[Rfam]
Nucleotides: 052
Stems, first nucleotide, its partner, number of pairs: 001036005007030002011025005
Number, partner (000 for none) and nucleotide at each position: 001036c002035g003034u004033a005032u006000g007030g008029u009000g010000u011025g012024c013023g014022a015021c016000u017000u018000c019000g020000g021015g022014u023013u024012g025011u026000a027000u028000a029008g030007c031000g032005a033004u034003a035002c036001g037000g038000c039000c040000u041000a042000u043000u044000a045000u046000g047000u048000g049000a050000g051000g052000u
The family of this 52-nucleotide RNA is "L31-Gammaproteobacteria ribosomal protein leader". Rfam classes the family as a cis-regulatory leader. The family's consensus secondary structure is taken from published work.